This 230-nucleotide RNA from Medicago truncatula belongs to the Rfam family "MIR2630 microRNA precursor family". The base pairs follow the family's consensus structure, which was predicted with RNAalifold. Lineage of the source: Eukaryota > Streptophyta > Euphyllophyta > Hologalegina > Medicago. Rfam 15.1 lists 296 matches to the family in 4 species. The match comes from Rfam's covariance-model search (181 bits). Its family is annotated with miRNA-mediated post-transcriptional gene silencing and RISC complex in the Gene Ontology.
[Rfam]
RNA sequence: UCUUGCAAAUAUGAAAUAAUUUGUUUUGGUCCUUGGUGUUUUGUUUUAGUCCCUGUAAAAUCCAUUCAUAAUGAAAUUGGUCCCUAUAAUAUUUAUUUUAGUUCUUAUUUUGAGGGACUAAAAUCAAAUAUUCUACAUGUUACAAGGACCAAAUCCAAUGUGAAAACAUUUUGCAAGGACUAAAACUAAAUAAAAAGGAUUAAAAGCAAAAAAUUAUAUAUUUGCACGAA
Numbered sequence: 001u002c003u004u005g006c007a008a009a010u011a012u013g014a015a016a017u018a019a020u021u022u023g024u025u026u027u028g029g030u031c032c033u034u035g036g037u038g039u040u041u042u043g044u045u046u047u048a049g050u051c052c053c054u055g056u057a058a059a060a061u062c063c064a065u066u067c068a069u070a071a072u073g074a075a076a077u078u079g080g081u082c083c084c085u086a087u088a089a090u091a092u093u094u095a096u097u098u099u100a101g102u103u104c105u106u107a108u109u110u111u112g113a114g115g116g117a118c119u120a121a122a123a124u125c126a127a128a129u130a131u132u133c134u135a136c137a138u139g140u141u142a143c144a145a146g147g148a149c150c151a152a153a154u155c156c157a158a159u160g161u162g163a164a165a166a167c168a169u170u171u172u173g174c175a176a177g178g179a180c181u182a183a184a185a186c187u188a189a190a191u192a193a194a195a196a197g198g199a200u201u202a203a204a205a206g207c208a209a210a211a212a213a214u215u216a217u218a219u220a221u222u223u224g225c226a227c228g229a230a
Stems, first nucleotide, its partner, number of pairs: 006224008015215002020210001022208002024205011037192005043186006050179002054175008065164002068161003072157002077152007087142006107124005